Rfam assigns this 85-nucleotide sequence from Oryctolagus cuniculus to the family "Small nucleolar RNA SNORD86".
The literature on the family includes a 2001 paper in Biochem Biophys Res Commun by Filippini et al., "U86, a novel snoRNA with an unprecedented gene organization in yeast".
The match comes from Rfam's covariance-model search (58 bits).
The organism belongs to Oryctolagus, within Eukaryota.
Gene Ontology terms of the family: RNA processing and nucleolus.
About the family: U86 belongs to the C/D family of snoRNAs. It is the human orthologue of Xenopus laevis U86 and has no identified RNA target.
[Rfam]
RNA sequence: UGUCAUGGUGAUGGCUGACCAGGGCUCCCUGGCUUUUACAGGCCUCUGCUGGGGCCGAACGGCCAGUGCUGGUGUCUGAGCGAUU
Numbered sequence: 001u002g003u004c005a006u007g008g009u010g011a012u013g014g015c016u017g018a019c020c021a022g023g024g025c026u027c028c029c030u031g032g033c034u035u036u037u038a039c040a041g042g043c044c045u046c047u048g049c050u051g052g053g054g055c056c057g058a059a060c061g062g063c064c065a066g067u068g069c070u071g072g073u074g075u076c077u078g079a080g081c082g083a084u085u
Base pairs, nucleotide, nucleotide: 002084003083004082006080010076011075012074018073019072020071021070022069024067025066026065027062028061030058032056034054035053039051040050042049043048